[Rfam]
RNA: c-di-GMP-I riboswitch aptamer
Organism: Variimorphobacter saccharofermentans
RNA sequence: UCUUUUUAAAGGCAAACUUAUCGAAAGGUAAGGGCGCAAAGCCAUGGAUCUAAAGGAAACCAUUUCCCAUGACCGCCAGGCUGCUAAG
Numbered sequence: 001u002c003u004u005u006u007u008a009a010a011g012g013c014a015a016a017c018u019u020a021u022c023g024a025a026a027g028g029u030a031a032g033g034g035c036g037c038a039a040a041g042c043c044a045u046g047g048a049u050c051u052a053a054a055g056g057a058a059a060c061c062a063u064u065u066c067c068c069a070u071g072a073c074c075g076c077c078a079g080g081c082u083g084c085u086a087a088g
Base pairs, nucleotide, nucleotide: 012037013036017032018031019030020029021028022027040082041081042080043079045078046077047076049072050071055067056066057065058064